[Rfam]
RNA sequence: UGCUCUCAGAAACCAAGUGUGGGUGUGGCCUGACAAAAAAGAAAAAAAAGGCGACCCAUCCUUAGUUUCUGAGGUCC
Numbered sequence: 001u002g003c004u005c006u007c008a009g010a011a012a013c014c015a016a017g018u019g020u021g022g023g024u025g026u027g028g029c030c031u032g033a034c035a036a037a038a039a040a041g042a043a044a045a046a047a048a049a050g051g052c053g054a055c056c057c058a059u060c061c062u063u064a065g066u067u068u069c070u071g072a073g074g075u076c077c
Base pairs, nucleotide, nucleotide: 002076004074005073006072007071009069010068011067012066013065016062017061021057022056023055024054028052029051030050031049